[Rfam]
RNA: Glycine riboswitch aptamer
Organism: Halovibrio variabilis
RNA sequence: AAGGUGAUAGCGGGAGAGCUUGGCGCAUCAACAGUCGAUGACGCUAGCGCCGAAGGAGCAACAACCCCGGAAACUCUCAGGCAACCGGACCGCUAUCACACU
Numbered sequence: 001a002a003g004g005u006g007a008u009a010g011c012g013g014g015a016g017a018g019c020u021u022g023g024c025g026c027a028u029c030a031a032c033a034g035u036c037g038a039u040g041a042c043g044c045u046a047g048c049g050c051c052g053a054a055g056g057a058g059c060a061a062c063a064a065c066c067c068c069g070g071a072a073a074c075u076c077u078c079a080g081g082c083a084a085c086c087g088g089a090c091c092g093c094u095a096u097c098a099c100a101c102u
Stems, first nucleotide, its partner, number of pairs: 006097008020047006049082003052078002056076003062069001